[Rfam]
RNA sequence: AUACAUAGCACAGAUAUUUUUUGCUAUUAGUUUGCAGGCUGAUAGCAUUCCUUUCUAACUACCAUAGGUAGUCUGCGAU
Numbered sequence: 001a002u003a004c005a006u007a008g009c010a011c012a013g014a015u016a017u018u019u020u021u022u023g024c025u026a027u028u029a030g031u032u033u034g035c036a037g038g039c040u041g042a043u044a045g046c047a048u049u050c051c052u053u054u055c056u057a058a059c060u061a062c063c064a065u066a067g068g069u070a071g072u073c074u075g076c077g078a079u
Base pairs, nucleotide, nucleotide: 023046024045025044026043027042028041029040030039031038033077034076035075036074037073059071060070061069062068063067
Cyanobacterial ribosomal protein S1 leader: a 79-nucleotide sequence. It is annotated as a cis-regulatory leader. Pairs were carried over by alignment from the consensus structure, which is taken from published work.